[Rfam]
RNA sequence: UGCAGAGUAGGUUUAUGCGCGUUAAGUGCCGGCUGAACAGGGAGUUGUCAGCUGGACGAAAAGGGAAUCAUCCCUUGCGGUGCGUAGGCCGCAUCCCGCUGCA
Numbered sequence: 001u002g003c004a005g006a007g008u009a010g011g012u013u014u015a016u017g018c019g020c021g022u023u024a025a026g027u028g029c030c031g032g033c034u035g036a037a038c039a040g041g042g043a044g045u046u047g048u049c050a051g052c053u054g055g056a057c058g059a060a061a062a063g064g065g066a067a068u069c070a071u072c073c074c075u076u077g078c079g080g081u082g083c084g085u086a087g088g089c090c091g092c093a094u095c096c097c098g099c100u101g102c103a
Stems, first nucleotide, its partner, number of pairs: 001103005010090010020079003026057002029055008040096003044092001061076004
Annotation:
Rfam assigns this 103-nucleotide RNA sequence from Enterocloster asparagiformis to the family "THF (Tetrahydrofolate) riboswitch aptamer". Its family is annotated with tetrahydrofolate metabolic process in the Gene Ontology. Rfam's curators put it in the seed alignment. Tetrahydrofolate (THF) riboswitch was first reported for Ames et al. as an RNA motif in 5' untranslated (5'-UTR)regions of folate transport and biosynthesis genes in Firmicutes genomes.